[Rfam]
RNA sequence: CGGCUGUAGCUAUAUCAAUACCCAUUUGAGAAGUUAACUGGCCGGUUGUUGUGAGAUUUUUUUUUUUUUUUCAAAUCUCCGUCAACAAAUCUGCUUACCGAACUUCUCACACUU
Numbered sequence: 001c002g003g004c005u006g007u008a009g010c011u012a013u014a015u016c017a018a019u020a021c022c023c024a025u026u027u028g029a030g031a032a033g034u035u036a037a038c039u040g041g042c043c044g045g046u047u048g049u050u051g052u053g054a055g056a057u058u059u060u061u062u063u064u065u066u067u068u069u070u071u072c073a074a075a076u077c078u079c080c081g082u083c084a085a086c087a088a089a090u091c092u093g094c095u096u097a098c099c100g101a102a103c104u105u106c107u108c109a110c111a112c113u114u
Stems, first nucleotide, its partner, number of pairs: 028108008040095003044091004048086004
Annotation: This 114-nucleotide sequence from Ziziphus jujuba belongs to the Rfam family "Small nucleolar RNA snoR109". Rfam 15.1 lists 680 matches to the family in 220 species. On this family, see Marker et al., Curr Biol 2002: "Experimental RNomics: identification of 140 candidates for small non-messenger RNAs in the plant Arabidopsis thaliana". It scores 86 bits against the family's covariance model. NCBI's taxonomy places the organism under Eukaryota, Viridiplantae, Mesangiospermae, Ziziphus, Ziziphus jujuba. The family's RNA type in Rfam is H/ACA-box small nucleolar RNA.